A member of the RNA family "mir-9256 microRNA precursor family" from Cnephaeus nilssonii, 67 nucleotides long. The base pairs follow the family's consensus structure, which was predicted with RNAalifold. A search with the family's covariance model found it, with a score of 82 bits. Gene Ontology terms of the family: RISC complex and miRNA-mediated post-transcriptional gene silencing.
[Rfam]
RNA sequence: AUAUAUACUGAGUGGCCAUAUCAUUAUGAGUUCAGAGAUCAUAAUAAUAUGGCCACUCAGUGUAUAU
Numbered sequence: 001a002u003a004u005a006u007a008c009u010g011a012g013u014g015g016c017c018a019u020a021u022c023a024u025u026a027u028g029a030g031u032u033c034a035g036a037g038a039u040c041a042u043a044a045u046a047a048u049a050u051g052g053c054c055a056c057u058c059a060g061u062g063u064a065u066a067u
Stems, first nucleotide, its partner, number of pairs: 004064014019049003023045006